[Rfam]
Notes:
This 157-nucleotide RNA from Streptomyces hundungensis belongs to the Rfam family "Streptomyces sRNA scr5239". A search with the family's covariance model found it, with a score of 101 bits.
RNA sequence: CUUCCGCCCACCCCGCACAGGCGGGCGGAACCGAGGCCCCGGCGCUCUCUGCCCUGACUGCGCCGUGACCUCCCUUUGAAGGCCGGGGGGACCGCACACCCGCCGGCCGGCAACCGGGCUGCGGUGCCCGGACGGGCCGAGGGUCCCGUCCAGGCGC
Numbered sequence: 001c002u003u004c005c006g007c008c009c010a011c012c013c014c015g016c017a018c019a020g021g022c023g024g025g026c027g028g029a030a031c032c033g034a035g036g037c038c039c040c041g042g043c044g045c046u047c048u049c050u051g052c053c054c055u056g057a058c059u060g061c062g063c064c065g066u067g068a069c070c071u072c073c074c075u076u077u078g079a080a081g082g083c084c085g086g087g088g089g090g091a092c093c094g095c096a097c098a099c100c101c102g103c104c105g106g107c108c109g110g111c112a113a114c115c116g117g118g119c120u121g122c123g124g125u126g127c128c129c130g131g132a133c134g135g136g137c138c139g140a141g142g143g144u145c146c147c148g149u150c151c152a153g154g155c156g157c
Stems, first nucleotide, its partner, number of pairs: 003029004008024002011021002033072004040065003044061002046057002081108005088101003115121002130151007